[Rfam]
RNA sequence: CGCAGAUGAUGCCAAUCUCACGAUGGUCUGCCGAGCCCCCGCGGGCCUGACGACACCGCCACGGCGUCGCUGAUGCGGCUGC
Numbered sequence: 001c002g003c004a005g006a007u008g009a010u011g012c013c014a015a016u017c018u019c020a021c022g023a024u025g026g027u028c029u030g031c032c033g034a035g036c037c038c039c040c041g042c043g044g045g046c047c048u049g050a051c052g053a054c055a056c057c058g059c060c061a062c063g064g065c066g067u068c069g070c071u072g073a074u075g076c077g078g079c080u081g082c
Base pairs, nucleotide, nucleotide: 001077002076003075004074
Dot-bracket structure: ((((.....................................................................)))).....